[Rfam]
This 138-nucleotide RNA sequence from Faecalicatena orotica belongs to the Rfam family "Molybdenum/Tungsten riboswitch aptamer (Moco RNA motif)". A reference for the family is Regulski et al. (2008), "in molybdenum cofactor and tungsten cofactor metabolism", Mol Microbiol. The family has 160 seed sequences and 1,248 matches in Rfam 15.1.
RNA sequence: UUGAUUGCAGGAAUUCGAGCUUUGCCAUCUAAAGUAUCCCGGAGGAUAAUAUCCGGGAUGCCAUGAUGGAAAGCCAAUGGGUAUGUUCCGAAAGGAGGAUGCCUUCCGUAUUUGAAAAGAAUAUCCGCACUGAAUCCC
Numbered sequence: 001u002u003g004a005u006u007g008c009a010g011g012a013a014u015u016c017g018a019g020c021u022u023u024g025c026c027a028u029c030u031a032a033a034g035u036a037u038c039c040c041g042g043a044g045g046a047u048a049a050u051a052u053c054c055g056g057g058a059u060g061c062c063a064u065g066a067u068g069g070a071a072a073g074c075c076a077a078u079g080g081g082u083a084u085g086u087u088c089c090g091a092a093a094g095g096a097g098g099a100u101g102c103c104u105u106c107c108g109u110a111u112u113u114g115a116a117a118a119g120a121a122u123a124u125c126c127g128c129a130c131u132g133a134a135u136c137c138c
Base pairs, nucleotide, nucleotide: 004131006129011124013122014121015120016119019074020073021072022071023070025069026068027067028066029065034061035060036059037058038057039056040055041054042053043052079104080103081102082101083100084099086097087096088095089094105115106114